This 61-nucleotide RNA sequence from Zingiber officinale belongs to the Rfam family "Plastid-psbN 5UTR RNA".
Pairs were carried over by alignment from the consensus structure, which was predicted with LocARNA.
By type it is a cis-regulatory element.
Plastid psbN is a non-coding RNA (ncRNA) recognised in plastids. It was reported as a conserved 11 stem-loop in the prime untranslated region (5UTR) of psbN genes. It has been reported that the motif is retained in a subset of mature transcripts in barley, which can suggests a possible role in transcript alternative 5 prime processing.
On this family, see Richter et al., Plant Commun 2023: "Retrograde signaling in plants: A critical review focusing on the GUN pathway and beyond".
[Rfam]
RNA sequence: AGCGACCCUAAUUAGUAGUGUAGUUCCCUAGCCCAGAGCUAUUUUACCAUAUUCAGAAUUC
Numbered sequence: 001a002g003c004g005a006c007c008c009u010a011a012u013u014a015g016u017a018g019u020g021u022a023g024u025u026c027c028c029u030a031g032c033c034c035a036g037a038g039c040u041a042u043u044u045u046a047c048c049a050u051a052u053u054c055a056g057a058a059u060u061c
Stems, first nucleotide, its partner, number of pairs: 017045002020042007
The match comes from Rfam's covariance-model search (52 bits).